A member of the RNA family "PyrR binding site" from Tetzosporium hominis, 138 nucleotides long. The match comes from Rfam's covariance-model search (57 bits). It is annotated as a cis-regulatory element. Rfam describes the family as follows. This family represents the PyrR binding site and terminator structure. NCBI's taxonomy places the organism under Bacteria, Bacillati, Bacilli, Caryophanales, Tetzosporium. The literature on the family includes a 2001 paper in Nucleic Acids Res by Bonner et al., "Molecular recognition of pyr mRNA by the Bacillus subtilis attenuation regulatory protein PyrR". Pairs were carried over by alignment from the consensus structure, which is taken from published work.
[Rfam]
RNA sequence: GGGUCCUUUAAAGACAGUCCAGAGAGGCUGAGAAGGCAUACGGUUUCGAAUGAACACAGACUGCGGUCUGUUCGUCCAUUUGAUUUAUUUCACUAUGCAUAGUCAACCUCUUAAGCGCUGCUUAAGAGGUUUUUUUGU
Number, nucleotide and partner (000 for none) at each position: 001g000002g000003g000004u000005c036006c035007u034008u033009u032010a000011a000012a000013g000014a000015c030016a029017g028018u027019c026020c000021a000022g000023a000024g000025a000026g019027g018028c017029u016030g015031a000032g009033a008034a007035g006036g005037c000038a000039u000040a000041c000042g000043g000044u000045u000046u000047c000048g077049a000050a075051u074052g000053a000054a000055c000056a071057c070058a069059g068060a067061c066062u000063g000064c000065g000066g061067u060068c059069u058070g057071u056072u000073c000074g051075u050076c000077c048078a000079u000080u000081u000082g000083a000084u000085u000086u000087a000088u000089u000090u000091c000092a000093c000094u000095a000096u000097g000098c000099a000100u000101a000102g000103u000104c000105a131106a130107c129108c128109u127110c126111u125112u124113a123114a122115g121116c120117g000118c000119u000120g116121c115122u114123u113124a112125a111126g110127a109128g108129g107130u106131u105132u000133u000134u000135u000136u000137g000138u000